Shown here is a 47-nucleotide RNA sequence from Rhizobium sp. Leaf306, a member of the family "ctRNA".
The family's consensus secondary structure is taken from published work.
Rfam classes the family as an antisense RNA.
This family represents a group of ctRNAs (or counter-transcribed RNAs) from p42d and related plasmids. ctRNAs are small, highly structured, antisense sequences which are involved in negative regulation. Members of this family are known to bind to the mRNA of repC causing translational repression. This model contains the predicted stem-loop structure followed by a U-rich tract which is proposed to act as a Rho-independent transcriptional terminator.
RNA sequence: AGAGAGGCUUCCACGACCUUGGUCGUUCGGGGGCCUUUUUCUUUUGC
Numbered sequence: 001a002g003a004g005a006g007g008c009u010u011c012c013a014c015g016a017c018c019u020u021g022g023u024c025g026u027u028c029g030g031g032g033g034c035c036u037u038u039u040u041c042u043u044u045u046g047c
Stems, first nucleotide, its partner, number of pairs: 005036008015027003
Dot-bracket structure: ....((((((((..(((.......))).))))))))...........